[Rfam]
RNA sequence: GUCCCAGUAGCUCAGUAGGAUAGAGCAACAGCCUUCUAAGCUGUGGGUCGGGCGUUCGAAUCGCUCCUGGGACA
Number, nucleotide and partner (000 for none) at each position: 001g073002u072003c071004c070005c069006a068007g067008u000009a000010g026011c025012u024013c023014a000015g000016u000017a000018g000019g000020a000021u000022a000023g013024a012025g011026c010027a000028a044029c043030a042031g041032c040033c000034u000035u000036c000037u000038a000039a000040g032041c031042u030043g029044u028045g000046g000047g000048u000049c000050g066051g065052g064053c063054g062055u000056u000057c000058g000059a000060a000061u000062c054063g053064c052065u051066c050067c007068u006069g005070g004071g003072a002073c001074a000

The record is a 74-nucleotide sequence from Allobacillus sp. SKP2-8, which matches "tRNA" in Rfam. A search with the family's covariance model found it, with a score of 69 bits. The organism belongs to Allobacillus, within Bacteria. The family's RNA type in Rfam is transfer RNA.